[Rfam]
RNA sequence: ACUUAUUUGGGUAAGAUGGGCUGUAAAGCCUUGAUAUUAAGCACUUUGGAGCGUUAUUCCAAUGUGCUUUUUUAAUUUUA
Dot-bracket structure: ..................((..........(..(....((((((...((((.....))))...))))))..)..)..)).
Numbered sequence: 001a002c003u004u005a006u007u008u009g010g011g012u013a014a015g016a017u018g019g020g021c022u023g024u025a026a027a028g029c030c031u032u033g034a035u036a037u038u039a040a041g042c043a044c045u046u047u048g049g050a051g052c053g054u055u056a057u058u059c060c061a062a063u064g065u066g067c068u069u070u071u072u073u074a075a076u077u078u079u080a
Stems, first nucleotide, its partner, number of pairs: 019079002031075001034072001039069006048060004